[Rfam]
RNA sequence: CAACUUGAGUUUCUCUUCAUUAUCAUAUAAAUCUUUCGACUUUUACUAAAGGCUUCCGUAGAGAGGAACCUUUGUGAGUGUUCUGUAUUUUGGGGGGCUCUGCUCACGGCAGAGCU
Numbered sequence: 001c002a003a004c005u006u007g008a009g010u011u012u013c014u015c016u017u018c019a020u021u022a023u024c025a026u027a028u029a030a031a032u033c034u035u036u037c038g039a040c041u042u043u044u045a046c047u048a049a050a051g052g053c054u055u056c057c058g059u060a061g062a063g064a065g066g067a068a069c070c071u072u073u074g075u076g077a078g079u080g081u082u083c084u085g086u087a088u089u090u091u092g093g094g095g096g097g098c099u100c101u102g103c104u105c106a107c108g109g110c111a112g113a114g115c116u
Stems, first nucleotide, its partner, number of pairs: 003079004009069009019059001029055002032052005095116001097115006

Background
The family of this 116-nucleotide RNA from Anabarilius grahami is "U5 spliceosomal RNA". U5 RNA is a component of both types of known spliceosome. The precise function of this molecule is unknown, though it is known that the 5' loop is required for splice site selection and p220 binding, and that both the 3' stem-loop and the Sm site are important for Sm protein binding and cap methylation. Pairs were carried over by alignment from the consensus structure, which is taken from published work. The literature on the family includes a 1997 paper in Nucleic Acids Res by Zwieb, "The uRNA database".